[Rfam]
RNA sequence: GGGGAUGAUCGGUUUCGACUGGGGAUGUCGAAGCAGGGGAAGCGAGCCGAGGAAGCGGCAAUGAUCUCGUUAACCAUAUGUCGCAAAAAAAUAAUCGCCAAGCCUAACAGCGAUCAUUUCGCCCUCGCUGCCUAAGUAGCGACCUGCGAAAUUGUCAGCCCGGGAGUGUUCCCGACCCGGAUCCUGGCAUAAUCUAGGGAACUAAACCAUUGAGCCCGGCCACGGGACUCAAUGGGAAAUCAAACAGUGGCUGGGCCUGUCGGCGGCUUGUCCGUGUGACUGCCGGGGCCGAGAAAAGCACAGCGGACUGCGCUCGGAGAAGCCCUGAUUCCGCACCACAGGACGCGGGUUCGAUUCCCGCCAUCUCCACUC
Numbered sequence: 001g002g003g004g005a006u007g008a009u010c011g012g013u014u015u016c017g018a019c020u021g022g023g024g025a026u027g028u029c030g031a032a033g034c035a036g037g038g039g040a041a042g043c044g045a046g047c048c049g050a051g052g053a054a055g056c057g058g059c060a061a062u063g064a065u066c067u068c069g070u071u072a073a074c075c076a077u078a079u080g081u082c083g084c085a086a087a088a089a090a091a092u093a094a095u096c097g098c099c100a101a102g103c104c105u106a107a108c109a110g111c112g113a114u115c116a117u118u119u120c121g122c123c124c125u126c127g128c129u130g131c132c133u134a135a136g137u138a139g140c141g142a143c144c145u146g147c148g149a150a151a152u153u154g155u156c157a158g159c160c161c162g163g164g165a166g167u168g169u170u171c172c173c174g175a176c177c178c179g180g181a182u183c184c185u186g187g188c189a190u191a192a193u194c195u196a197g198g199g200a201a202c203u204a205a206a207c208c209a210u211u212g213a214g215c216c217c218g219g220c221c222a223c224g225g226g227a228c229u230c231a232a233u234g235g236g237a238a239a240u241c242a243a244a245c246a247g248u249g250g251c252u253g254g255g256c257c258u259g260u261c262g263g264c265g266g267c268u269u270g271u272c273c274g275u276g277u278g279a280c281u282g283c284c285g286g287g288g289c290c291g292a293g294a295a296a297a298g299c300a301c302a303g304c305g306g307a308c309u310g311c312g313c314u315c316g317g318a319g320a321a322g323c324c325c326u327g328a329u330u331c332c333g334c335a336c337c338a339c340a341g342g343a344c345g346c347g348g349g350u351u352c353g354a355u356u357c358c359c360g361c362c363a364u365c366u367c368c369a370c371u372c
Stems, first nucleotide, its partner, number of pairs: 001368007019341003023337002030331003034327005043316005048069005055084006125142007153189006160180003164177001168202006207235008218252006254290005261285003265280001267278001270308004345361005
transfer-messenger RNA: a 372-nucleotide sequence from Actinacidiphila oryziradicis. A search with the family's covariance model found it, with a score of 168 bits. About the family: Bacterial tmRNA, also known as 10Sa RNA or SsrA, is named for its dual tRNA and mRNA-like properties. Its role is to liberate the mRNA from a stalled ribosome. To accomplish this part of the tmRNA is used as a reading frame that ends in a translation stop signal. The broken mRNA is replaced in the ribosome by the tmRNA and translation of the tmRNA leads to addition of a proteolysis tag to the incomplete protein enabling recognition by a protease. It is annotated as a non-coding RNA gene. The base pairs follow the family's consensus structure, which is taken from published work.